Bacterial RNase P class A: a 349-nucleotide sequence from Anaeromassilibacillus sp. An200. Its family is annotated with dimeric ribonuclease P complex, ribonuclease P activity and tRNA processing in the Gene Ontology. The family's RNA type in Rfam is ribozyme. NCBI's taxonomy places the organism under Bacteria, Bacillati, Eubacteriales, Acutalibacteraceae, Anaeromassilibacillus. The family's consensus secondary structure is taken from published work.
[Rfam]
RNA sequence: UGAGCAGCCUGAGCGGCCGCGGGCGAAGCCCGAAAGGGCCCGUCUGAGGAAAGUCCGAGCUCCACAGGGCAAGAAUAACGGCUAACGGCCGCCGGGGGCGACCCCAGGGAAAGUGCAACAGAGAGAUACCGCCGCUCUUUGGGCGGCAAGGGUGGAAAGGCGAGGUAAGAGCUCACCAGCGCGCGGGAGACCGCGCGGCUCUGCAAACCCUAUUCGGAGCAACACCGCGGAGGGACAGUAUGCGCCGGCCCGGCGCGUCCCGUGGAGGUGGCAGGAACCGGAGCGGCAACGCACGGUCAAGAUAGAUGGUCGUUCAUGACAGAACUCGGCUUACAGGGCUGGUCACACC
Numbered sequence: 001u002g003a004g005c006a007g008c009c010u011g012a013g014c015g016g017c018c019g020c021g022g023g024c025g026a027a028g029c030c031c032g033a034a035a036g037g038g039c040c041c042g043u044c045u046g047a048g049g050a051a052a053g054u055c056c057g058a059g060c061u062c063c064a065c066a067g068g069g070c071a072a073g074a075a076u077a078a079c080g081g082c083u084a085a086c087g088g089c090c091g092c093c094g095g096g097g098g099c100g101a102c103c104c105c106a107g108g109g110a111a112a113g114u115g116c117a118a119c120a121g122a123g124a125g126a127u128a129c130c131g132c133c134g135c136u137c138u139u140u141g142g143g144c145g146g147c148a149a150g151g152g153u154g155g156a157a158a159g160g161c162g163a164g165g166u167a168a169g170a171g172c173u174c175a176c177c178a179g180c181g182c183g184c185g186g187g188a189g190a191c192c193g194c195g196c197g198g199c200u201c202u203g204c205a206a207a208c209c210c211u212a213u214u215c216g217g218a219g220c221a222a223c224a225c226c227g228c229g230g231a232g233g234g235a236c237a238g239u240a241u242g243c244g245c246c247g248g249c250c251c252g253g254c255g256c257g258u259c260c261c262g263u264g265g266a267g268g269u270g271g272c273a274g275g276a277a278c279c280g281g282a283g284c285g286g287c288a289a290c291g292c293a294c295g296g297u298c299a300a301g302a303u304a305g306a307u308g309g310u311c312g313u314u315c316a317u318g319a320c321a322g323a324a325c326u327c328g329g330c331u332u333a334c335a336g337g338g339c340u341g342g343u344c345a346c347a348c349c
Base pairs, nucleotide, nucleotide: 001345002344003343005341006340007339008338009337010336011334012314013313014312015311016310017309018308020046021045022044023043024042025041051332052331053330055329056328057327058326059325060219061218062217063216068251069250073215074214075213076212077211079091080090081089082088093107094105095104096103097102108210109209113208114207115204116203117202129151130150131147132146133145134144135143136142137141159177160176162174163173164172179199180197181196182195183194184193185192186191223270224269225268226267232261233260234259235258236257242256243255244254245253246252277297278296279295280294283292284291285290